About this RNA
Mycobacterium smegmatis small RNA 1: a 304-nucleotide RNA from Mycolicibacterium phlei. About the family: Mycobacterium smegmatis small RNA 1 is highly expressed during stationary phase of growth. Ms1 RNA directly interacts with RNA polymerase (RNAP), but in a different way than 6S, which is present in other bacteria. Ms1 does not require the presence of the main sigma factor for RNAP interaction. There is evidence that Ms1 RNA may function similar to 6S RNA in M. smegmatis which does not have 6S RNA. For this family Rfam cites "Ms1, a novel sRNA interacting with the RNA polymerase core in mycobacteria" (Hnilicova et al., Nucleic Acids Res, 2014). Pairs were carried over by alignment from the consensus structure, which was predicted with CMfinder.
RNA sequence: ACGGAAGCUUGGUGAGGCCAAGCCCGAGUCGGAAGAGAAGACUCGGACUCCCGAUCCCGGCUUCCCAGCACGGAUCCCGGCACCCACGCGGAGCACAUGCCGCGGAAUAGGCAGAAGUGUUGCGGGCCUGCGUAUUUGCGAAAAGCGGACGACAUCGACGGCCCCUUGGGCGGGGUUGCAGUCGCAGCGCAUCGACAAGACGCCGAGGCCGCCCACGCAACCCACGUGAGCACGCUUGGUAACCGGCGUCCGUGCUAGCGGGCGGCGAACCGAACUCGUUUCGGGGCGCCGCCCGCUUUGCGUU
Numbered sequence: 001a002c003g004g005a006a007g008c009u010u011g012g013u014g015a016g017g018c019c020a021a022g023c024c025c026g027a028g029u030c031g032g033a034a035g036a037g038a039a040g041a042c043u044c045g046g047a048c049u050c051c052c053g054a055u056c057c058c059g060g061c062u063u064c065c066c067a068g069c070a071c072g073g074a075u076c077c078c079g080g081c082a083c084c085c086a087c088g089c090g091g092a093g094c095a096c097a098u099g100c101c102g103c104g105g106a107a108u109a110g111g112c113a114g115a116a117g118u119g120u121u122g123c124g125g126g127c128c129u130g131c132g133u134a135u136u137u138g139c140g141a142a143a144a145g146c147g148g149a150c151g152a153c154a155u156c157g158a159c160g161g162c163c164c165c166u167u168g169g170g171c172g173g174g175g176u177u178g179c180a181g182u183c184g185c186a187g188c189g190c191a192u193c194g195a196c197a198a199g200a201c202g203c204c205g206a207g208g209c210c211g212c213c214c215a216c217g218c219a220a221c222c223c224a225c226g227u228g229a230g231c232a233c234g235c236u237u238g239g240u241a242a243c244c245g246g247c248g249u250c251c252g253u254g255c256u257a258g259c260g261g262g263c264g265g266c267g268a269a270c271c272g273a274a275c276u277c278g279u280u281u282c283g284g285g286g287c288g289c290c291g292c293c294c295g296c297u298u299u300g301c302g303u304u
Base pairs, nucleotide, nucleotide: 003065004064006062007061008060009059011057012056016052017051021049022048025045026044027043028042029041030040067256068255069254070253071252072251073250074249077246078245079244080243084239085238086237088235089234090233093231094230098113099112100111101110119221120220121219122218123217124216125210126209127208128207129206130203131202132201133200136197139194140193141192145190146189147188150184151183152182153181159178160177161176162175163174164173165172258296259295260294261293262292263291264290265289266288267287270284271283272282